Overview:
Small nucleolar RNA SNORD35: an 87-nucleotide sequence from Tupaia belangeri. It scores 62 bits against the family's covariance model. The family has 8 seed sequences and 1,842 matches in Rfam 15.1. From the family's description: U35 is a C/D box snoRNA located in intron 6 of ribosomal protein L13A and intron 3 of ribosomal protein S11 in humans and at homologous positions in mouse and chicken ribosomal protein genes. U35 guides the methylation of 2'-O-ribose sites in 28S rRNA. The organism belongs to Tupaia belangeri, within Eukaryota.
RNA sequence: GGCAGAUGAUGUCUUUUUCUCAUGAUGGCCUAUGAAUCCUACUGCAAGCAGUCCUGAUAAUGCCAACGGCUCAGCUAAUGCCAGGAG
Numbered sequence: 001g002g003c004a005g006a007u008g009a010u011g012u013c014u015u016u017u018u019c020u021c022a023u024g025a026u027g028g029c030c031u032a033u034g035a036a037u038c039c040u041a042c043u044g045c046a047a048g049c050a051g052u053c054c055u056g057a058u059a060a061u062g063c064c065a066a067c068g069g070c071u072c073a074g075c076u077a078a079u080g081c082c083a084g085g086a087g
Base pairs, nucleotide, nucleotide: 001082002081003080004079